Notes:
Rfam assigns this 199-nucleotide RNA from Bacillus cereus to the family "Group II catalytic intron D1-D4-5".
RNA sequence: GUGAACUGUCAUUCCAAGAAGUCAAAUGAUAGGGUAACGCCUUGAAGGGCUUCCUUUAAUACUCCCGACAUGCAGUGAAGUUAGCAAGAACUGAACUGUAUGAAGCUCGGUGAAGUCGGUUGAGAGUUACCGUAAUCCUAUAGGAUACGAAAGUCACUCAGAGGUGGGUGGUGUAACCUAUAAACCGGAAGUCUAUAAA
Numbered sequence: 001g002u003g004a005a006c007u008g009u010c011a012u013u014c015c016a017a018g019a020a021g022u023c024a025a026a027u028g029a030u031a032g033g034g035u036a037a038c039g040c041c042u043u044g045a046a047g048g049g050c051u052u053c054c055u056u057u058a059a060u061a062c063u064c065c066c067g068a069c070a071u072g073c074a075g076u077g078a079a080g081u082u083a084g085c086a087a088g089a090a091c092u093g094a095a096c097u098g099u100a101u102g103a104a105g106c107u108c109g110g111u112g113a114a115g116u117c118g119g120u121u122g123a124g125a126g127u128u129a130c131c132g133u134a135a136u137c138c139u140a141u142a143g144g145a146u147a148c149g150a151a152a153g154u155c156a157c158u159c160a161g162a163g164g165u166g167g168g169u170g171g172u173g174u175a176a177c178c179u180a181u182a183a184a185c186c187g188g189a190a191g192u193c194u195a196u197a198a199a
Stems, first nucleotide, its partner, number of pairs: 018053006031043004054191004064110001066109003069102008079092002117187005126177005131149003136145002153172008
Rfam links the family to the GO term Group II intron splicing. Pairs were carried over by alignment from the consensus structure. Group II introns are found in rRNA, tRNA and mRNA of organelles in fungi, plants and protists, and also in mRNA in bacteria.